[Rfam]
RNA: Glycine riboswitch aptamer
RNA sequence: ACAGAAUUCUCUGGAGAGUCUCAUGAUGAGCGCCGAAGGUGUAAGGUGGAAUUGCCGCCGAUCUCUCAGGCAAAAGGACAGAGCAGAUAGC
Numbered sequence: 001a002c003a004g005a006a007u008u009c010u011c012u013g014g015a016g017a018g019u020c021u022c023a024u025g026a027u028g029a030g031c032g033c034c035g036a037a038g039g040u041g042u043a044a045g046g047u048g049g050a051a052u053u054g055c056c057g058c059c060g061a062u063c064u065c066u067c068a069g070g071c072a073a074a075a076g077g078a079c080a081g082a083g084c085a086g087a088u089a090g091c
Stems, first nucleotide, its partner, number of pairs: 007085001009083005020030004032071003035067002039065001041063001045059004